[Rfam]
RNA: Wolbachia sRNA 46
Organism: Trichonephila clavata
RNA sequence: UUUGAAUCCACUAGGGAGGAUGUCAUCCCAGUGCCCAGACACUGGGAUCCAGGAAUUUUGAUUAGAGAUUAAAUUGGUGAGUAUAAAAGUAGCUAAUCCUACGUUAAAAUACAACGUUUUUAAUGGGACUGCGUAAAAGGGCUGGAUUCCAGUGUCAAGCACUGGAAUGACACCUUUGUGUUU
Numbered sequence: 001u002u003u004g005a006a007u008c009c010a011c012u013a014g015g016g017a018g019g020a021u022g023u024c025a026u027c028c029c030a031g032u033g034c035c036c037a038g039a040c041a042c043u044g045g046g047a048u049c050c051a052g053g054a055a056u057u058u059u060g061a062u063u064a065g066a067g068a069u070u071a072a073a074u075u076g077g078u079g080a081g082u083a084u085a086a087a088a089g090u091a092g093c094u095a096a097u098c099c100u101a102c103g104u105u106a107a108a109a110u111a112c113a114a115c116g117u118u119u120u121u122a123a124u125g126g127g128a129c130u131g132c133g134u135a136a137a138a139g140g141g142c143u144g145g146a147u148u149c150c151a152g153u154g155u156c157a158a159g160c161a162c163u164g165g166a167a168u169g170a171c172a173c174c175u176u177u178g179u180g181u182u183u
Stems, first nucleotide, its partner, number of pairs: 013183003021172006028165007038156015